[Rfam]
Nucleotides: 600
Base pairs, nucleotide, nucleotide: 001480002479003477004476005475007474008473009472010471011470012469013468016464017463020428021427022426023425024424025321027319028318029317030316031315032314033313034312035310036309041056042055043054044053065305066304067303068302069301070300071299075119076118077117078116080114081113088108089107090106092104093103094102123294124293126292127291128290129289132288133287134283135282136281137279138278139277140276144183145182146181147180148179149178151158152157162175163174164173165172189271190270191269194239195238196237197236198235199234200233204228205227208226209225210224211222212221213220214219242262243261245259246258247257248256249255325380326379327378328377329376330375331374337368338367339366342361343360346357347356348355349354387418392413393412394411395410396409397408398407434456435455436454437453438452439451440450441449483571485568488564489563491561493558494557495556496555498553499552500551503548504547505546506545508544509543510542511541512540513539514538515537518534519533520532521531522530523529524528573596574595575594576593577592578591579590580589581588582587
Number, partner (000 for none) and nucleotide at each position: 001480u002479g003477g004476c005475g006000g007474g008473g009472g010471a011470g012469c013468a014000c015000u016464a017463c018000a019000a020428c021427c022426g023425g024424a025321g026000g027319a028318g029317c030316c031315u032314g033313c034312g035310g036309u037000u038000u039000a040000a041056u042055u043054g044053g045000a046000c047000u048000c049000a050000a051000c052000g053044c054043c055042g056041g057000a058000c059000a060000u061000c062000u063000c064000a065305c066304c067303a068302g069301c070300u071299c072000c073000g074000a075119c076118a077117g078116c079000a080114g081113u082000a083000a084000u085000g086000a087000c088108g089107g090106u091000c092104a093103g094102g095000u096000u097000g098000a099000u100000g101000a102094c103093c104092u105000u106090a107089c108088c109000c110000g111000a112000c113081g114080c115000u116078g117077c118076u119075g120000a121000g122000a123294g124293g125000a126292g127291g128290u129289g130000c131000a132288u133287g134283g135282c136281c137279g138278c139277c140276g141000u142000c143000a144183g145182c146181u147180c148179g149178u150000a151158c152157c153000g154000u155000g156000a157152g158151g159000c160000g161000u162175c163174c164173u165172g166000u167000u168000a169000a170000g171000u172165c173164a174163g175162g176000c177000a178149a179148c180147g181146a182145g183144c184000g185000a186000g187000a188000c189271c190270c191269g192000c193000a194239c195238c196237u197236c198235u199234a200233g201000u202000u203000g204228c205227c206000a207000g208226c209225a210224g211222c212221a213220u214219c215000u216000u217000g218000c219214g220213a221212u222211g223000g224210c225209u226208g227205g228204g229000u230000a231000c232000a233200c234199u235198a236197g237196g238195g239194g240000g241000a242262c243261u244000g245259c246258c247257g248256u249255c250000g251000c252000u253000a254000a255249g256248a257247c258246g259245g260000a261243g262242g263000a264000a265000g266000g267000a268000a269191c270190g271189g272000g273000c274000a275000a276140c277139g278138g279137u280000a281136g282135g283134u284000c285000a286000g287133u288132a289129u290128g291127c292126c293124c294123c295000g296000a297000a298000u299071g300070a301069g302068c303067u304066g305065g306000g307000c308000u309036a310035c311000a312034c313033g314032c315031g316030g317029g318028c319027u320000a321025c322000a323000a324000u325380g326379g327378c328377c329376a330375a331374g332000a333000c334000a335000g336000u337368g338367g339366g340000a341000u342361g343360c344000g345000a346357c347356a348355c349354c350000g351000a352000g353000a354349g355348g356347u357346g358000a359000a360343g361342c362000u363000a364000a365000u366339c367338u368337c369000c370000u371000a372000a373000a374331c375330u376329u377328g378327g379326u380325c381000g382000u383000a384000g385000u386000u387418c388000g389000g390000a391000u392413u393412g394411c395410g396409g397408a398407c399000u400000g401000a402000a403000a404000c405000c406000c407398g408397u409396c410395c411394g412393c413392a414000u415000g416000a417000a418387g419000c420000u421000g422000g423000a424024u425023u426022c427021g428020g429000u430000a431000g432000u433000a434456a435455u436454c437453g438452c439451g440450u441449g442000u443000c444000a445000g446000a447000a448000g449441c450440g451439c452438g453437c454436g455435g456434u457000g458000a459000a460000u461000a462000c463017g464016u465000c466000c467000c468013u469012g470011c471010u472009c473008c474007u475005u476004g477003c478000a479002c480001a481000c482000a483571c484000c485568g486000c487000c488564c489563g490000u491561c492000a493558a494557a495556g496555c497000a498553c499552c500551c501000g502000a503548g504547u505546g506545g507000g508544g509543u510542c511541c512540g513539g514538a515537u516000g517000a518534g519533g520532c521531c522530u523529g524528g525000c526000u527000a528524c529523c530522a531521g532520g533519u534518c535000g536000a537515a538514u539513c540512u541511g542510g543509g544508u545506c546505c547504g548503c549000a550000a551500g552499g553498g554000g555496g556495c557494u558493u559000a560000a561491g562000u563489c564488g565000u566000a567000a568485c569000a570000a571483g572000g573596u574595a575594g576593c577592c578591g579590u580589a581588g582587g583000g584000g585000a586000a587582u588581c589580u590579g591578c592577g593576g594575c595574u596573g597000g598000a599000u600000c

Source information:
The record is a 600-nucleotide part of an RNA from Natronomonas pharaonis, which matches "Archaeal small subunit ribosomal RNA" in Rfam. The base pairs follow the family's consensus structure, which is taken from published work.